The family of this 314-nucleotide RNA from [Candida] boidinii is "Nuclear RNase P". Rfam classes the family as a ribozyme. The match comes from Rfam's covariance-model search (60 bits). Ribonuclease P (RNase P) is a ubiquitous endoribonuclease, found in archaea, bacteria and eukarya as well as chloroplasts and mitochondria. On this family, see Frank and Pace, Annu Rev Biochem 1998: "Ribonuclease P: unity and diversity in a tRNA processing ribozyme".
RNA sequence: AACUGGCACAGUCCGCGCGUACUUGCACACAGAAGGGCGGCUAAAAUCUAAUUUUGGCCGCCAGAUUAUCAGGCGAGUGGGAAAUUCGGUGGUUUACUCCAUUCCUCGUUAUAUUCUCUUGAGAGAUUUCCUUAGCGUGCAAACGCUGGGCGGUGGCCAUCAGCAAACAGGUCUGUUUGCUACUUAUGUGGUGACAGAUCAUGGGAGGCCCCGCGAAUGGUUGACCCCUGCUGAUUCGGCAGGGUGUUGCUGAGUUCAAUGCGUGGAUCCUGCUACAGUAGUGGGAAACUCGAUACCGAUCAUUAGUGUUAGUU
Numbered sequence: 001a002a003c004u005g006g007c008a009c010a011g012u013c014c015g016c017g018c019g020u021a022c023u024u025g026c027a028c029a030c031a032g033a034a035g036g037g038c039g040g041c042u043a044a045a046a047u048c049u050a051a052u053u054u055u056g057g058c059c060g061c062c063a064g065a066u067u068a069u070c071a072g073g074c075g076a077g078u079g080g081g082a083a084a085u086u087c088g089g090u091g092g093u094u095u096a097c098u099c100c101a102u103u104c105c106u107c108g109u110u111a112u113a114u115u116c117u118c119u120u121g122a123g124a125g126a127u128u129u130c131c132u133u134a135g136c137g138u139g140c141a142a143a144c145g146c147u148g149g150g151c152g153g154u155g156g157c158c159a160u161c162a163g164c165a166a167a168c169a170g171g172u173c174u175g176u177u178u179g180c181u182a183c184u185u186a187u188g189u190g191g192u193g194a195c196a197g198a199u200c201a202u203g204g205g206a207g208g209c210c211c212c213g214c215g216a217a218u219g220g221u222u223g224a225c226c227c228c229u230g231c232u233g234a235u236u237c238g239g240c241a242g243g244g245u246g247u248u249g250c251u252g253a254g255u256u257c258a259a260u261g262c263g264u265g266g267a268u269c270c271u272g273c274u275a276c277a278g279u280a281g282u283g284g285g286a287a288a289c290u291c292g293a294u295a296c297c298g299a300u301c302a303u304u305a306g307u308g309u310u311a312g313u314u
Stems, first nucleotide, its partner, number of pairs: 001314004007308003012267007021078005036062012087298005101218004115126004133148006150214004155210003170200003268286007